A member of the RNA family "pemK RNA", 55 nucleotides long. The family's consensus secondary structure is taken from published work. The family's RNA type in Rfam is cis-regulatory element.
RNA sequence: ACAAUGAUACUUCUUAAAAGAGCUGGGCGGAAGCGCAGGGGUGAGACUCCCAUGG
Dot-bracket structure: ...........((((....)))(((.((....)).)))(((.......))))...